[Rfam]
RNA sequence: UGUCUCUCAAAGUGGCUGUGAAAUGGUGCACUUUCGAUCCGAUAUCUCAUAUCACAGCCAGCUUUGAUGAGCUAGG
Numbered sequence: 001u002g003u004c005u006c007u008c009a010a011a012g013u014g015g016c017u018g019u020g021a022a023a024u025g026g027u028g029c030a031c032u033u034u035c036g037a038u039c040c041g042a043u044a045u046c047u048c049a050u051a052u053c054a055c056a057g058c059c060a061g062c063u064u065u066g067a068u069g070a071g072c073u074a075g076g
Stems, first nucleotide, its partner, number of pairs: 005070002007067006013060009024051002

The record is a 76-nucleotide RNA from Anopheles gambiae, which matches "mir-2 microRNA precursor family" in Rfam. On this family, see Lee and Ambros, Science 2001: "An extensive class of small RNAs in Caenorhabditis elegans". Its family is annotated with miRNA-mediated post-transcriptional gene silencing and RISC complex in the Gene Ontology.